[Rfam]
Nucleotides: 064
Stems, first nucleotide, its partner, number of pairs: 015031005
Number, partner (000 for none) and nucleotide at each position: 001000u002000a003000u004000c005000u006000u007000u008000g009000c010000a011000c012000c013000c014000a015031a016030u017029c018028a019027g020000g021000a022000a023000a024000a025000g026000c027019c028018u029017g030016g031015u032000c033000u034000a035000c036000a037000u038000a039000a040000u041000a042000a043000u044000c045000a046000u047000u048000u049000a050000a051000a052000u053000a054000a055000u056000a057000u058000u059000a060000g061000c062000a063000u064000g
S15-Flavobacteria ribosomal protein leader: a 64-nucleotide RNA sequence from Flavobacterium cyanobacteriorum. Taxonomically the source falls in Flavobacterium (Bacteria, Pseudomonadati, Flavobacteriia, Flavobacteriales). Clan: Ribosomal Protein S15 Leader clan. A search with the family's covariance model found it, with a score of 70 bits. A reference for the family is Eckert and Weinberg (2020), "Discovery of 20 novel ribosomal leader candidates in bacteria and archaea", BMC Microbiol.